Shown here is a 161-nucleotide RNA sequence from Clostridium sp. CAG:81, a member of the family "Clostridiales-1 RNA". The source organism's lineage runs through Bacteria, Bacillati, Bacillota, Clostridia and Clostridium.
RNA sequence: UGAAAGUGUUGUCAAGCGGAUAGCCAGAAUGACGUGCUUGCACGUCAGGCUGGAUAGACAUUUGACAACCAAGCCUGCAUGAGUAAGUAGGGCGAUAGCCCGGAUUACGAAUGGAGGCGGCAACUGUGGGAGUGCCGUAGGCACGGAGCAGUUGGCUUUCG
Numbered sequence: 001u002g003a004a005a006g007u008g009u010u011g012u013c014a015a016g017c018g019g020a021u022a023g024c025c026a027g028a029a030u031g032a033c034g035u036g037c038u039u040g041c042a043c044g045u046c047a048g049g050c051u052g053g054a055u056a057g058a059c060a061u062u063u064g065a066c067a068a069c070c071a072a073g074c075c076u077g078c079a080u081g082a083g084u085a086a087g088u089a090g091g092g093c094g095a096u097a098g099c100c101c102g103g104a105u106u107a108c109g110a111a112u113g114g115a116g117g118c119g120g121c122a123a124c125u126g127u128g129g130g131a132g133u134g135c136c137g138u139a140g141g142c143a144c145g146g147a148g149c150a151g152u153u154g155g156c157u158u159u160c161g
Base pairs, nucleotide, nucleotide: 001161002160003159004158005157006156007155008069009068010067011066015062016061018059021056022055024053025052026051027050030047032045033044034043035042036041073118074117075116076115078113079112080111083108084107085106086105090101091100092099093098121154122153123152124151125150126149127148132144133143134142135141
Dot-bracket structure: (((((((((((...((.(..((.((((..(.(((((....))))).)..)))).))..).))...))))...((((.(((..((((...((((....))))...))))..))).))))..(((((((....((((.....))))...))))))))))))))

It is annotated as a small RNA. A search with the family's covariance model found it, with a score of 110 bits.